[Rfam]
RNA sequence: AUAAAAGAUAGAGGUUGCGAGAAACAUUAGUAAUCUCAUUGAUGGGACAGGCCCAAGUGAUAUGAGAUAAAAGGGGAUUUCGCCGAAAGAGAACACGCUCCUGUGUGUGUUUGUCUUGGGCAUACGAAGAAUAUUCGUAUGACUGUCACUUAGUAAUAAGUGGGGAGCUAUCAUACGA
Numbered sequence: 001a002u003a004a005a006a007g008a009u010a011g012a013g014g015u016u017g018c019g020a021g022a023a024a025c026a027u028u029a030g031u032a033a034u035c036u037c038a039u040u041g042a043u044g045g046g047a048c049a050g051g052c053c054c055a056a057g058u059g060a061u062a063u064g065a066g067a068u069a070a071a072a073g074g075g076g077a078u079u080u081c082g083c084c085g086a087a088a089g090a091g092a093a094c095a096c097g098c099u100c101c102u103g104u105g106u107g108u109g110u111u112u113g114u115c116u117u118g119g120g121c122a123u124a125c126g127a128a129g130a131a132u133a134u135u136c137g138u139a140u141g142a143c144u145g146u147c148a149c150u151u152a153g154u155a156a157u158a159a160g161u162g163g164g165g166a167g168c169u170a171u172c173a174u175a176c177g178a
Stems, first nucleotide, its partner, number of pairs: 007172005017083006025075001033068007087117004091112008118144002121141008146163007
Dot-bracket structure: ......(((((.....((((((..(.......(((((((......................)))))))......)..))))))...((((((((((((......)))))))).))))((.((((((((.....)))))))).)).(((((((....)))))))....)))))......
A member of the RNA family "Lysine riboswitch aptamer" from Pseudobutyrivibrio xylanivorans, 178 nucleotides long.
Lineage of the source: Bacteria > Bacillota > Lachnospirales > Lachnospiraceae > Pseudobutyrivibrio xylanivorans.
The family's consensus secondary structure is taken from published work.